This 507-nucleotide sequence from Streptomyces spinoverrucosus belongs to the Rfam family "Saccharopolyspora sRNA 350". Taxonomically the source falls in Streptomyces (Bacteria, Bacillati, Kitasatosporales, Streptomycetaceae).
[Rfam]
RNA sequence: GCGCCGUGAACUCCCACUUCUUGCCCGGGUCGGCGAGGACAUGGCCGCCGAAGGCGUCGCCGUCGGCCAUCAGACCGAGGACCACCUCGUCGCCGUACGGGCCCUCGCCGAUCCGCUCCACCUUGCCGUGCGCGACCAGGUAGACGUGGUCCGCCUUCCGGCCCUCCGCCACGAUGACCUGGCCGGGCUCGAACUCCUUCUGCACGAACUUCUCCGCGAGCGCGCCGAGCGCGUCGCCGUCCGUGAAGCCGCGCAGUGGCGGCAGCUCGCCCAACUCCUCCGGCACGACCUGGACCUUCGCGCCGGUCUUCACGAACGACACCCGUCCGUCGCCGAGCGUGUAGGCGAGGCGGCGGUUGACCCGGUAGGUCGCGCCCGGCACGUUCACCCACGGCAGCAUCCGGGUCAGCCAGCGCGAGCUGAUGCCCUGCAUCUGCGGCUCGGACUUCGUCGUGGUCGCCAGAUUCCUGGCCGCCUCGGUACCGAGGCUCUGCCGCUCCUCCUCGG
Numbered sequence: 001g002c003g004c005c006g007u008g009a010a011c012u013c014c015c016a017c018u019u020c021u022u023g024c025c026c027g028g029g030u031c032g033g034c035g036a037g038g039a040c041a042u043g044g045c046c047g048c049c050g051a052a053g054g055c056g057u058c059g060c061c062g063u064c065g066g067c068c069a070u071c072a073g074a075c076c077g078a079g080g081a082c083c084a085c086c087u088c089g090u091c092g093c094c095g096u097a098c099g100g101g102c103c104c105u106c107g108c109c110g111a112u113c114c115g116c117u118c119c120a121c122c123u124u125g126c127c128g129u130g131c132g133c134g135a136c137c138a139g140g141u142a143g144a145c146g147u148g149g150u151c152c153g154c155c156u157u158c159c160g161g162c163c164c165u166c167c168g169c170c171a172c173g174a175u176g177a178c179c180u181g182g183c184c185g186g187g188c189u190c191g192a193a194c195u196c197c198u199u200c201u202g203c204a205c206g207a208a209c210u211u212c213u214c215c216g217c218g219a220g221c222g223c224g225c226c227g228a229g230c231g232c233g234u235c236g237c238c239g240u241c242c243g244u245g246a247a248g249c250c251g252c253g254c255a256g257u258g259g260c261g262g263c264a265g266c267u268c269g270c271c272c273a274a275c276u277c278c279u280c281c282g283g284c285a286c287g288a289c290c291u292g293g294a295c296c297u298u299c300g301c302g303c304c305g306g307u308c309u310u311c312a313c314g315a316a317c318g319a320c321a322c323c324c325g326u327c328c329g330u331c332g333c334c335g336a337g338c339g340u341g342u343a344g345g346c347g348a349g350g351c352g353g354c355g356g357u358u359g360a361c362c363c364g365g366u367a368g369g370u371c372g373c374g375c376c377c378g379g380c381a382c383g384u385u386c387a388c389c390c391a392c393g394g395c396a397g398c399a400u401c402c403g404g405g406u407c408a409g410c411c412a413g414c415g416c417g418a419g420c421u422g423a424u425g426c427c428c429u430g431c432a433u434c435u436g437c438g439g440c441u442c443g444g445a446c447u448u449c450g451u452c453g454u455g456g457u458c459g460c461c462a463g464a465u466u467c468c469u470g471g472c473c474g475c476c477u478c479g480g481u482a483c484c485g486a487g488g489c490u491c492u493g494c495c496g497c498u499c500c501u502c503c504u505c506g507g
Base pairs, nucleotide, nucleotide: 006388007387008386009385010384011383015379022321023320025318028317030315031314035311036310037309038308039307040306044304046302047301048300050298051297053232057228058227059226061224062223063222064110065109066108067107076101079098081096082095085092117220119218121216125212128209129208130205132203133202134201138198139197140196142195143194149190153188154187155186159185160184161183162182164176167173168172233295234294235293239289240288241287243286244285245284249282251279253277255276256275257274259270260269261268328341329340330339352376353375354374355373359371360370361369362368390430391429393427394426395425396424398422399421402417403416436475437474438473439472441470443468444467445466447463448462450460451459476506479501480500484496485495487494